[Rfam]
RNA sequence: ACAACAUUUGGACCGUUAGUCUGUCGAGCAAUAUCACCCGCUCGGUGGAAGAUCUUCCCUUUGUCGU
Numbered sequence: 001a002c003a004a005c006a007u008u009u010g011g012a013c014c015g016u017u018a019g020u021c022u023g024u025c026g027a028g029c030a031a032u033a034u035c036a037c038c039c040g041c042u043c044g045g046u047g048g049a050a051g052a053u054c055u056u057c058c059c060u061u062u063g064u065c066g067u
Base pairs, nucleotide, nucleotide: 004064005063006062010058011057012056015053016052017051020049021048022047023046024045025044026043027042028041029040
RNA: mir-2774 microRNA precursor family
Organism: Bombyx mori